[Rfam]
RNA sequence: AGAGCCUCGACGAGCCAAUAAAGACUAAGAAAAUUGACUCAAAAAUCAA
Numbered sequence: 001a002g003a004g005c006c007u008c009g010a011c012g013a014g015c016c017a018a019u020a021a022a023g024a025c026u027a028a029g030a031a032a033a034u035u036g037a038c039u040c041a042a043a044a045a046u047c048a049a
Base pairs, nucleotide, nucleotide: 007042012040013039014038016036017035018034019033
The family of this 49-nucleotide sequence from Garcinia mangostana is "Plastid-rpl16 group II-D1 intron". The literature on the family includes a 2023 paper in Plant Commun by Richter et al., "Retrograde signaling in plants: A critical review focusing on the GUN pathway and beyond". The base pairs follow the family's consensus structure, which was predicted with LocARNA. Rfam 15.1 lists 1,446 matches to the family in 693 species. The source organism's lineage runs through Eukaryota, Euphyllophyta, Gunneridae, rosids and Garcinia. Rfam's curators write: Plastid-rpl16 is a non-coding RNA (ncRNA) recognised in plastids. It was recognised in and intronic region of a ribosome rpl16 gene. Gene Ontology term of the family: Group II intron splicing.